[Rfam]
RNA sequence: AUAACUGAGAAAGUGGAGAACAAUCUACUUUCCCCACGCGAUCAAGUCUUGGGAGGAUGCGAUCCAGGCGCGGUAAUUCGCUGCCGCCGGAAACGGAUAACGGGUCGGGCGCGUUUAAUUGCAAGGCUUCGUGCCUUGCAUUUUUUU
Number, nucleotide and partner (000 for none) at each position: 001a000002u000003a147004a146005c000006u000007g000008a000009g000010a000011a030012a029013g028014u027015g026016g025017a000018g000019a000020a000021c000022a000023a000024u000025c016026u015027a014028c013029u012030u011031u000032c000033c000034c000035c000036a000037c113038g112039c111040g110041a000042u000043c000044a000045a000046g058047u057048c056049u055050u000051g000052g000053g000054a000055g049056g048057a047058u046059g000060c000061g106062a105063u104064c103065c102066a000067g085068g084069c083070g081071c080072g079073g000074u000075a000076a000077u000078u000079c072080g071081c070082u000083g069084c068085c067086g000087c096088c095089g094090g000091a000092a000093a000094c089095g088096g087097a000098u000099a000100a000101c000102g065103g064104g063105u062106c061107g000108g000109g000110c040111g039112c038113g037114u000115u000116u000117a000118a000119u000120u140121g139122c138123a137124a136125g135126g134127c133128u000129u000130c000131g000132u000133g127134c126135c125136u124137u123138g122139c121140a120141u000142u000143u000144u000145u000146u004147u003